A member of the RNA family "Small nucleolar RNA SNORA58" from Eudromia elegans, 136 nucleotides long. A reference for the family is Huttenhofer et al. (2001), "RNomics: an experimental approach that identifies 201 candidates for novel, small, non-messenger RNAs in mouse", EMBO J. Rfam describes the family as follows. ACA52 is a member of the H/ACA class of snoRNA that guide the sites of modification of uridines to pseudouridines. It scores 75 bits against the family's covariance model. Lineage of the source: Eukaryota > Vertebrata > Saurischia > Theropoda > Eudromia.
RNA sequence: CCGCACACCAGUAGACCUUGUCUGGUUCUUCUGAUAGCCAGACGAGGGGGAUGGUGCAUGCAACAAGAACCAGGAGCUUGCUGCAAGCUCUCGGCAGCCGUGACGUGCCUGAUUGAGCUGCAGCACUCCAACACGG
Numbered sequence: 001c002c003g004c005a006c007a008c009c010a011g012u013a014g015a016c017c018u019u020g021u022c023u024g025g026u027u028c029u030u031c032u033g034a035u036a037g038c039c040a041g042a043c044g045a046g047g048g049g050g051a052u053g054g055u056g057c058a059u060g061c062a063a064c065a066a067g068a069a070c071c072a073g074g075a076g077c078u079u080g081c082u083g084c085a086a087g088c089u090c091u092c093g094g095c096a097g098c099c100g101u102g103a104c105g106u107g108c109c110u111g112a113u114u115g116a117g118c119u120g121c122a123g124c125a126c127u128c129c130a131a132c133a134c135g136g
Base pairs, nucleotide, nucleotide: 003061004060005059008056016047017046018045019044020043021042022041023040024039073129074128075127076126079125082122083121084120095111096110097109